[Rfam]
RNA sequence: AACCCCCAGUUCGACUGGGGGUUCAGGAAAGCUUAUAGCUAUGAGUAGUCAAUCCUUUGAACUCGAUGAUAAGAUGUUAGCCGGUCUGCCAACCGCUAAAACUUAUCGAAGGAGAACAAAG
Numbered sequence: 001a002a003c004c005c006c007c008a009g010u011u012c013g014a015c016u017g018g019g020g021g022u023u024c025a026g027g028a029a030a031g032c033u034u035a036u037a038g039c040u041a042u043g044a045g046u047a048g049u050c051a052a053u054c055c056u057u058u059g060a061a062c063u064c065g066a067u068g069a070u071a072a073g074a075u076g077u078u079a080g081c082c083g084g085u086c087u088g089c090c091a092a093c094c095g096c097u098a099a100a101a102c103u104u105a106u107c108g109a110a111g112g113a114g115a116a117c118a119a120a121g
Base pairs, nucleotide, nucleotide: 001023002022003021004020005019006018007017008016009015010014028042030040031039032038033037055121056120057119058118059117062114063113064108065107066106067105072103073102077099078098079097080096082095083094084093085092
RNA: STnc490 Hfq binding RNA